The family of this 230-nucleotide RNA from Drosophila gunungcola is "R2 RNA element". The organism belongs to elegans subgroup (in: flies), within Eukaryota. Pairs were carried over by alignment from the consensus structure, which is taken from published work. The family has 15 seed sequences and 3,698 matches in Rfam 15.1.
RNA sequence: ACGUAGCUGAUAUUUUUGGUUUAUAUCAUUGCCUGCUACCUUGGCAUUAAAAAUUUGGAAACUAAAGGUAUAAACACAGCCUUCGUGGUAUGAUGUGGUUUUUAGUAUGUAGGCGUUGUAGAACAAAUUCUCUCUUUAUCUGAGAUCUACAACGAAUCGUGCAUGCGAGUAAGCGAUAUGUAUCGGAAACAUUCGAACUCGUAUCUAUGAAGAUUUUCCAUCCUCGCGUC
Numbered sequence: 001a002c003g004u005a006g007c008u009g010a011u012a013u014u015u016u017u018g019g020u021u022u023a024u025a026u027c028a029u030u031g032c033c034u035g036c037u038a039c040c041u042u043g044g045c046a047u048u049a050a051a052a053a054u055u056u057g058g059a060a061a062c063u064a065a066a067g068g069u070a071u072a073a074a075c076a077c078a079g080c081c082u083u084c085g086u087g088g089u090a091u092g093a094u095g096u097g098g099u100u101u102u103u104a105g106u107a108u109g110u111a112g113g114c115g116u117u118g119u120a121g122a123a124c125a126a127a128u129u130c131u132c133u134c135u136u137u138a139u140c141u142g143a144g145a146u147c148u149a150c151a152a153c154g155a156a157u158c159g160u161g162c163a164u165g166c167g168a169g170u171a172a173g174c175g176a177u178a179u180g181u182a183u184c185g186g187a188a189a190c191a192u193u194c195g196a197a198c199u200c201g202u203a204u205c206u207a208u209g210a211a212g213a214u215u216u217u218c219c220a221u222c223c224u225c226g227c228g229u230c
Base pairs, nucleotide, nucleotide: 037070038069039068040067041066042065076229077228079227080226092225093224095222097219098218105162106161107160108159109158114154115153116152117151118150119149120148121147122146164203165202166201167200168199169198
This family represents the 3' UTR region of the R2 retrotransposable element. This family is known to interact with the R2-encoded reverse transcriptase in a reaction known as target primed reverse transcription (TPRT).
Its family is annotated with regulation of reverse transcription in the Gene Ontology.